RAGATH-18 RNA: a 67-nucleotide sequence. About the family: Actinobacteria, Firmicutes, Fusobacteria, Thermotogae (1 example). By type it is a small RNA. Pairs were carried over by alignment from the consensus structure, which is taken from published work.
[Rfam]
RNA sequence: ACUAUGGAGAGUACAAGGAACUAUGAGUAGAUACAAAGUAUUGAAAAUAUACUCGAUGAAGUAGUAA
Numbered sequence: 001a002c003u004a005u006g007g008a009g010a011g012u013a014c015a016a017g018g019a020a021c022u023a024u025g026a027g028u029a030g031a032u033a034c035a036a037a038g039u040a041u042u043g044a045a046a047a048u049a050u051a052c053u054c055g056a057u058g059a060a061g062u063a064g065u066a067a
Stems, first nucleotide, its partner, number of pairs: 001065005009054005022049003030042005